RNA: Arthropod 7SK RNA
RNA sequence: GGAAGUGUGUGUCUUCUGUUUGUGAUGGCACGUAGCUGGACAUUGAUCGCUAGACCGUUAUUAGUGUUUGCAGAUCUGCUCAGUGGCAUCCGUCACACUAUUGUUUCCCCAAUAAAAUUUGCUUGGCAGACGUUUGGUGCUGAAAUUCAAAUGCCGGUCUUCUGUUGCAACGACGACGGGUCGUGACGCACAGUCAAGCCGAUGUCUCCCAGGAGCUAGUGGCGAAUGGUGUUGUUGGUUUCCGCCGCAUCAUUCAACAAAGCUCCUGGUGUGUUUACAUUCGCUGUGAGACCAGCAUCGGAUUUCCCAGUCUGUCGUUUUCAAAAUUUCUUAGUUAAGUAACUUGUAGCUUAGCUUCGGAUUUUCGUAAAUUUGCAGUUCAGAACACUUCCAUAUCAGUGGCAUUGCCGAGCAAUUUGCCCAUUUCUUUUG
Numbered sequence: 001g002g003a004a005g006u007g008u009g010u011g012u013c014u015u016c017u018g019u020u021u022g023u024g025a026u027g028g029c030a031c032g033u034a035g036c037u038g039g040a041c042a043u044u045g046a047u048c049g050c051u052a053g054a055c056c057g058u059u060a061u062u063a064g065u066g067u068u069u070g071c072a073g074a075u076c077u078g079c080u081c082a083g084u085g086g087c088a089u090c091c092g093u094c095a096c097a098c099u100a101u102u103g104u105u106u107c108c109c110c111a112a113u114a115a116a117a118u119u120u121g122c123u124u125g126g127c128a129g130a131c132g133u134u135u136g137g138u139g140c141u142g143a144a145a146u147u148c149a150a151a152u153g154c155c156g157g158u159c160u161u162c163u164g165u166u167g168c169a170a171c172g173a174c175g176a177c178g179g180g181u182c183g184u185g186a187c188g189c190a191c192a193g194u195c196a197a198g199c200c201g202a203u204g205u206c207u208c209c210c211a212g213g214a215g216c217u218a219g220u221g222g223c224g225a226a227u228g229g230u231g232u233u234g235u236u237g238g239u240u241u242c243c244g245c246c247g248c249a250u251c252a253u254u255c256a257a258c259a260a261a262g263c264u265c266c267u268g269g270u271g272u273g274u275u276u277a278c279a280u281u282c283g284c285u286g287u288g289a290g291a292c293c294a295g296c297a298u299c300g301g302a303u304u305u306c307c308c309a310g311u312c313u314g315u316c317g318u319u320u321u322c323a324a325a326a327u328u329u330c331u332u333a334g335u336u337a338a339g340u341a342a343c344u345u346g347u348a349g350c351u352u353a354g355c356u357u358c359g360g361a362u363u364u365u366c367g368u369a370a371a372u373u374u375g376c377a378g379u380u381c382a383g384a385a386c387a388c389u390u391c392c393a394u395a396u397c398a399g400u401g402g403c404a405u406u407g408c409c410g411a412g413c414a415a416u417u418u419g420c421c422c423a424u425u426u427c428u429u430u431u432g
Stems, first nucleotide, its partner, number of pairs: 001392008022096005036083003041078002045076004049071002052069001055066001401421003404416005